[Rfam]
RNA sequence: UAAUGAGGUAGAGGCGCGAUUGCCAUCAGUAUCUUUUCUAAGGAUGACAACAAUGAGGAAAAGAAAAAGGGGCCAUCGCCGAAGUGGAAGUAGAAGUCACGCUAUUUUUGCUGGAUCUGUAUUGAAGAAGUGCAGAGCUGUCAUAAUUUGUAGCGGCAAGUUAUGGAGGACUACCAUUAUG
Numbered sequence: 001u002a003a004u005g006a007g008g009u010a011g012a013g014g015c016g017c018g019a020u021u022g023c024c025a026u027c028a029g030u031a032u033c034u035u036u037u038c039u040a041a042g043g044a045u046g047a048c049a050a051c052a053a054u055g056a057g058g059a060a061a062a063g064a065a066a067a068a069g070g071g072g073c074c075a076u077c078g079c080c081g082a083a084g085u086g087g088a089a090g091u092a093g094a095a096g097u098c099a100c101g102c103u104a105u106u107u108u109u110g111c112u113g114g115a116u117c118u119g120u121a122u123u124g125a126a127g128a129a130g131u132g133c134a135g136a137g138c139u140g141u142c143a144u145a146a147u148u149u150g151u152a153g154c155g156g157c158a159a160g161u162u163a164u165g166g167a168g169g170a171c172u173a174c175c176a177u178u179a180u181g
Base pairs, nucleotide, nucleotide: 007175008174009173010172011171016079017078018077019076020075022073023072024071032064033063034062035061036060037059038058039057083112084111085110086109087108088107089106090105091104092103093102113139114138116136117135118134119133120132121131122130123129141166142165143164144163145162146161147160148159149158